[Rfam]
RNA sequence: AGAGCAGGAAGAGAUAAAGACGGGGAACAGACAGAGCAUGGAUGCAGCUAUUAACAGUCUCUUACUGUUUUGGUUCCACCCAUGCACUGCCUCUUCCCUGGCUCUGCCUCCUUUUACUCC
Number, nucleotide and partner (000 for none) at each position: 001a000002g000003a000004g000005c000006a000007g000008g000009a000010a000011g000012a000013g000014a000015u000016a000017a000018a103019g102020a000021c100022g099023g098024g097025g096026a095027a094028c000029a092030g091031a000032c089033a088034g087035a000036g085037c084038a083039u082040g081041g080042a000043u000044g000045c000046a075047g000048c000049u000050a000051u000052u000053a000054a000055c000056a000057g000058u000059c000060u000061c000062u000063u000064a000065c000066u000067g000068u000069u000070u000071u000072g000073g000074u000075u046076c000077c000078a000079c000080c041081c040082a039083u038084g037085c036086a000087c034088u033089g032090c000091c030092u029093c000094u027095u026096c025097c024098c023099u022100g021101g000102c019103u018104c000105u000106g000107c000108c000109u000110c000111c000112u000113u000114u000115u000116a000117c000118u000119c000120c000
RNA: MIR408 microRNA precursor family
Organism: Acer yangbiense